[Rfam]
RNA: mir-515 microRNA precursor family
Organism: Cebus imitator
RNA sequence: UCUCAUGCUGUGACUCUCUAAAGGGAGGUGUGUUCUGUUGUCUGAAAUGAAACACACGCCGUCCCUUUGGAGCAUUACCGCUUGAGA
Numbered sequence: 001u002c003u004c005a006u007g008c009u010g011u012g013a014c015u016c017u018c019u020a021a022a023g024g025g026a027g028g029u030g031u032g033u034u035c036u037g038u039u040g041u042c043u044g045a046a047a048u049g050a051a052a053c054a055c056a057c058g059c060c061g062u063c064c065c066u067u068u069g070g071a072g073c074a075u076u077a078c079c080g081c082u083u084g085a086g087a
Stems, first nucleotide, its partner, number of pairs: 001087005007081002010078004016072003020068007027060006034054001038052002